[Rfam]
Rfam assigns this 78-nucleotide RNA to the family "Small nucleolar RNA R38". Gene Ontology terms of the family: nucleolus and RNA processing. snoR38 is a C/D box small nucleolar RNA conserved across yeast, human, Arabidopsis and rice. It is encoded in the intron of elongation factor-1 gamma in both pombe and cerevisiae. snoR38 guides the methylation of 2'-O-ribose sites in 28S rRNA.
RNA sequence: CUGAGCUGAGGAUGAUUUAAAGUUAUCCCUGUCUGAAAUGGUAUCUUUUGUGAGGAGGUCUGACUUGCUGAGGCUCAG
Dot-bracket structure: (((((((................................................................)))))))